This 135-nucleotide RNA from Cottoperca gobio belongs to the Rfam family "Small nucleolar RNA SNORA70". Rfam classes the family as an H/ACA-box small nucleolar RNA. The match comes from Rfam's covariance-model search (98 bits). The literature on the family includes a 2000 paper in IUBMB Life by Charette and Gray, "Pseudouridine in RNA: what, where, how, and why".
RNA sequence: CUGCAGCUUAUUAAGCCGACCAGUUGUGCUUUCAGUGCGUUUCUGGUGUGCAAUGGUUGCAGACAGUGAAUCUUUGGUUUGUGUAUGAACUCAGCUGGGAGGUGCUGAGUGCUUUAAGGGACCACUGAGACACAA
Numbered sequence: 001c002u003g004c005a006g007c008u009u010a011u012u013a014a015g016c017c018g019a020c021c022a023g024u025u026g027u028g029c030u031u032u033c034a035g036u037g038c039g040u041u042u043c044u045g046g047u048g049u050g051c052a053a054u055g056g057u058u059g060c061a062g063a064c065a066g067u068g069a070a071u072c073u074u075u076g077g078u079u080u081g082u083g084u085a086u087g088a089a090c091u092c093a094g095c096u097g098g099g100a101g102g103u104g105c106u107g108a109g110u111g112c113u114u115u116a117a118g119g120g121a122c123c124a125c126u127g128a129g130a131c132a133c134a135a
Base pairs, nucleotide, nucleotide: 002052003051004050005049019047020046021045022044026040027039028038076123077122078121089110090109091108092107093106